[Rfam]
RNA sequence: ACCUGUUGCGAGCGGACGCCUACGCGGUGCGCGCAACACCAGACACAUAACCGUGCCCCGGGAAGAACGAGGCACUUCAGGGCGUU
Numbered sequence: 001a002c003c004u005g006u007u008g009c010g011a012g013c014g015g016a017c018g019c020c021u022a023c024g025c026g027g028u029g030c031g032c033g034c035a036a037c038a039c040c041a042g043a044c045a046c047a048u049a050a051c052c053g054u055g056c057c058c059c060g061g062g063a064a065g066a067a068c069g070a071g072g073c074a075c076u077u078c079a080g081g082g083c084g085u086u
Stems, first nucleotide, its partner, number of pairs: 004038007012030003017026002053075005059069002
nrdJ RNA: an 86-nucleotide RNA from Streptomyces aurantiacus.